RNA sequence: UGGGUUCGAUUAGUUACUAGUCGCCUUUUGUGGCAACACAAAAGUGAUAAUCCGGCUUAAUCGGUGAAACCUAAGUUGUGCGGAGAUAAUCUUGGCAACAUGUUGCACUCCAAAAGCAAUAUGGCAACACCGAGCGGUAUGUGGAGUAAUCCAACAGCCGUGUAUCGACUCAUAGGCUACCUGAAAGCAGGUAGUACUAGGAUGCGGAAUGAUACCAGGAACAGGUAAAUCCACUAUUUCGCAUAAAACGCCGGAGAACCUGAAAUUAUUCAGGUUCAAGAUAUAGUCAGUGCCAUGUGAAAGCAUGGA
Numbered sequence: 001u002g003g004g005u006u007c008g009a010u011u012a013g014u015u016a017c018u019a020g021u022c023g024c025c026u027u028u029u030g031u032g033g034c035a036a037c038a039c040a041a042a043a044g045u046g047a048u049a050a051u052c053c054g055g056c057u058u059a060a061u062c063g064g065u066g067a068a069a070c071c072u073a074a075g076u077u078g079u080g081c082g083g084a085g086a087u088a089a090u091c092u093u094g095g096c097a098a099c100a101u102g103u104u105g106c107a108c109u110c111c112a113a114a115a116g117c118a119a120u121a122u123g124g125c126a127a128c129a130c131c132g133a134g135c136g137g138u139a140u141g142u143g144g145a146g147u148a149a150u151c152c153a154a155c156a157g158c159c160g161u162g163u164a165u166c167g168a169c170u171c172a173u174a175g176g177c178u179a180c181c182u183g184a185a186a187g188c189a190g191g192u193a194g195u196a197c198u199a200g201g202a203u204g205c206g207g208a209a210u211g212a213u214a215c216c217a218g219g220a221a222c223a224g225g226u227a228a229a230u231c232c233a234c235u236a237u238u239u240c241g242c243a244u245a246a247a248a249c250g251c252c253g254g255a256g257a258a259c260c261u262g263a264a265a266u267u268a269u270u271c272a273g274g275u276u277c278a279a280g281a282u283a284u285a286g287u288c289a290g291u292g293c294c295a296u297g298u299g300a301a302a303g304c305a306u307g308g309a
Stems, first nucleotide, its partner, number of pairs: 007023007029040003051255004056250001061133006070124002074120001134161005165289001167288004258275007294307005